[Rfam]
The record is a 47-nucleotide RNA sequence from Solanum commersonii, which matches "Plastid-rpl16 group II-D1 intron" in Rfam. Taxonomically the source falls in Solanum (Eukaryota, Viridiplantae, Magnoliopsida, Solaneae). Pairs were carried over by alignment from the consensus structure, which was predicted with LocARNA. Rfam describes the family as follows. Plastid-rpl16 is a non-coding RNA (ncRNA) recognised in plastids. It was recognised in and intronic region of a ribosome rpl16 gene.
RNA sequence: AAGAGCUUUGAGUCAAUAAAGACAGAGAAGAUUGACUCCCAAAUCAA
Numbered sequence: 001a002a003g004a005g006c007u008u009u010g011a012g013u014c015a016a017u018a019a020a021g022a023c024a025g026a027g028a029a030g031a032u033u034g035a036c037u038c039c040c041a042a043a044u045c046a047a
Stems, first nucleotide, its partner, number of pairs: 007041001010038008